[Rfam]
RNA sequence: CCGGACGACUGGUCGACACGAGUGGAUCGGCAGGAGUGGAGGACCCGAGCAGUUCGGGGCGUUCCGACACGGACCGCUCCUCGGGGUGAAGCCGCGCGAGCGGCCGGACAUCUUCGCCUGUCCGAACCCGACAGGUCAUCCUUCACAGGCGGCUGACGAAGGGUUG
Numbered sequence: 001c002c003g004g005a006c007g008a009c010u011g012g013u014c015g016a017c018a019c020g021a022g023u024g025g026a027u028c029g030g031c032a033g034g035a036g037u038g039g040a041g042g043a044c045c046c047g048a049g050c051a052g053u054u055c056g057g058g059g060c061g062u063u064c065c066g067a068c069a070c071g072g073a074c075c076g077c078u079c080c081u082c083g084g085g086g087u088g089a090a091g092c093c094g095c096g097c098g099a100g101c102g103g104c105c106g107g108a109c110a111u112c113u114u115c116g117c118c119u120g121u122c123c124g125a126a127c128c129c130g131a132c133a134g135g136u137c138a139u140c141c142u143u144c145a146c147a148g149g150c151g152g153c154u155g156a157c158g159a160a161g162g163g164u165u166g
Stems, first nucleotide, its partner, number of pairs: 001034002036146006046083004084129003092103004106123004
RNA: c-di-AMP riboswitch aptamer (ydaO/yuaA leader)
Organism: Streptomyces sp. S4.7